[Rfam]
Overview: Flavobacterium-1 RNA: a 127-nucleotide RNA. By type it is a small RNA.
RNA sequence: CCGAGAUAGGGGUACAAAUCCUGCCAAAGGCGUUUCCCUGGACCUUAGCGAUGACGGCAUUUCAAAGCCUGAGCAACGACUCUCGGCGUUAGAUGGGGAGAGUAUCAGACGUGAUGUCCCCUCUAAC
Numbered sequence: 001c002c003g004a005g006a007u008a009g010g011g012g013u014a015c016a017a018a019u020c021c022u023g024c025c026a027a028a029g030g031c032g033u034u035u036c037c038c039u040g041g042a043c044c045u046u047a048g049c050g051a052u053g054a055c056g057g058c059a060u061u062u063c064a065a066a067g068c069c070u071g072a073g074c075a076a077c078g079a080c081u082c083u084c085g086g087c088g089u090u091a092g093a094u095g096g097g098g099a100g101a102g103u104a105u106c107a108g109a110c111g112u113g114a115u116g117u118c119c120c121c122u123c124u125a126a127c
Stems, first nucleotide, its partner, number of pairs: 001086006007079001009077001010045004015040002022032004048074002056069002089126005095121005105114003
Dot-bracket structure: (((((((.(((((.((.....((((...))))......)).))))..((......((..........))...))..).).))))))..(((((.(((((.....(((....)))..)))))))))).